Shown here is a 112-nucleotide sequence from Paenibacillus monticola, a member of the family "TPP riboswitch aptamer (THI element)".
[Rfam]
RNA sequence: UCAUAGAAUCAGGGGAGCUGGAAUUAGGCUGGCUGAGAUUGUAUCCCACAAGAUACUGACCCUUAUACCUGAUCUGGAUAAUGCCAGCGUAGGAAUAGCCACUAGUUCGGGU
Numbered sequence: 001u002c003a004u005a006g007a008a009u010c011a012g013g014g015g016a017g018c019u020g021g022a023a024u025u026a027g028g029c030u031g032g033c034u035g036a037g038a039u040u041g042u043a044u045c046c047c048a049c050a051a052g053a054u055a056c057u058g059a060c061c062c063u064u065a066u067a068c069c070u071g072a073u074c075u076g077g078a079u080a081a082u083g084c085c086a087g088c089g090u091a092g093g094a095a096u097a098g099c100c101a102c103u104a105g106u107u108c109g110g111g112u
Base pairs, nucleotide, nucleotide: 006100009097011063012062013061014060016057017033018032019031020030021029041056042055043054044053068093069092070091071090074087075086076085077084